[Rfam]
RNA sequence: GUUCGGUCCUCGAUGAAACCCCUGGCCAGGGUUGAGGGGGAAGAACGCCAGGGAAACAUGCAUCGGCGCUCACGUAGGAGCGUCGUUGUAGCACAUUAACUGGC
Numbered sequence: 001g002u003u004c005g006g007u008c009c010u011c012g013a014u015g016a017a018a019c020c021c022c023u024g025g026c027c028a029g030g031g032u033u034g035a036g037g038g039g040g041a042a043g044a045a046c047g048c049c050a051g052g053g054a055a056a057c058a059u060g061c062a063u064c065g066g067c068g069c070u071c072a073c074g075u076a077g078g079a080g081c082g083u084c085g086u087u088g089u090a091g092c093a094c095a096u097u098a099a100c101u102g103g104c
Stems, first nucleotide, its partner, number of pairs: 001046004009038003012033002020031004047104005059090004064085008